Annotation: This 85-nucleotide sequence from Streptacidiphilus jiangxiensis belongs to the Rfam family "ZMP/ZTP riboswitch aptamer (pfl RNA motif)". The family's consensus secondary structure is taken from published work.
[Rfam]
RNA sequence: GAUCCGGGCCGUGACUGGCGCUGAGGUGGACGACCACCGGGGAGCGGCCCGACAUCCGUCGAUGCCGCGCGCCUGGGCGACCCAC
Numbered sequence: 001g002a003u004c005c006g007g008g009c010c011g012u013g014a015c016u017g018g019c020g021c022u023g024a025g026g027u028g029g030a031c032g033a034c035c036a037c038c039g040g041g042g043a044g045c046g047g048c049c050c051g052a053c054a055u056c057c058g059u060c061g062a063u064g065c066c067g068c069g070c071g072c073c074u075g076g077g078c079g080a081c082c083c084a085c
Base pairs, nucleotide, nucleotide: 005051006050007049008048009047010046011045012044015041016040017073018072019071020070021069026037027036028035029034063079064078065077066076